The record is a 46-nucleotide sequence from Persicirhabdus sediminis, which matches "Acido-Lenti-1 RNA" in Rfam. Lineage of the source: Bacteria > Pseudomonadati > Verrucomicrobiota > Verrucomicrobiia > Persicirhabdus.
RNA sequence: CCCAUGGCUGAAGCUAUGGGCUUCGUUCUGACGCGCUUUAAGCGCA
Numbered sequence: 001c002c003c004a005u006g007g008c009u010g011a012a013g014c015u016a017u018g019g020g021c022u023u024c025g026u027u028c029u030g031a032c033g034c035g036c037u038u039u040a041a042g043c044g045c046a
Stems, first nucleotide, its partner, number of pairs: 001020008033045005
About this RNA
The family's RNA type in Rfam is small RNA.